[Rfam]
RNA sequence: AAGAUUUUCUUUCUCGCAAUAUCUCUUAUUGUCAUUCGUUCUUCUCUGCGUUACCUCGGUCGGUUUCACCGGGGUUUUU
Numbered sequence: 001a002a003g004a005u006u007u008u009c010u011u012u013c014u015c016g017c018a019a020u021a022u023c024u025c026u027u028a029u030u031g032u033c034a035u036u037c038g039u040u041c042u043u044c045u046c047u048g049c050g051u052u053a054c055c056u057c058g059g060u061c062g063g064u065u066u067c068a069c070c071g072g073g074g075u076u077u078u079u
Stems, first nucleotide, its partner, number of pairs: 053075008